[Rfam]
The family of this 114-nucleotide RNA sequence is "TPP riboswitch aptamer (THI element)".
Vitamin B(1) in its active form thiamin pyrophosphate (TPP) is an essential coenzyme that is synthesised by coupling of pyrimidine and thiazole moieties in bacteria. The previously detected thiamin-regulatory element, thi box was extended, resulting in a new, highly conserved RNA secondary structure, the THI element, which is widely distributed in eubacteria and also occurs in some archaea. Analysis of operon structures identified a large number of new candidate thiamin-regulated genes, mostly transporters, in various prokaryotic organisms. The THI element is a riboswitch that directly binds to TPP to regulate gene expression through a variety of mechanisms in archaea, bacteria and eukaryotes. through a variety of mechanisms in archaea, bacteria and eukaryotes.
RNA sequence: AUUAUGCACCGGGGGUGUCUGAAUUUGCUUUAGGAAAAGCAUUUUCAGGCUGAGAAAGUCCCUUAGAACCUGAACAGGAUAAUGCCUGCGUAGGGAGAGUGCUUUUUUGUUUUU
Numbered sequence: 001a002u003u004a005u006g007c008a009c010c011g012g013g014g015g016u017g018u019c020u021g022a023a024u025u026u027g028c029u030u031u032a033g034g035a036a037a038a039g040c041a042u043u044u045u046c047a048g049g050c051u052g053a054g055a056a057a058g059u060c061c062c063u064u065a066g067a068a069c070c071u072g073a074a075c076a077g078g079a080u081a082a083u084g085c086c087u088g089c090g091u092a093g094g095g096a097g098a099g100u101g102c103u104u105u106u107u108u109g110u111u112u113u114u
Stems, first nucleotide, its partner, number of pairs: 006102004011063004016057001017050007069094004075088004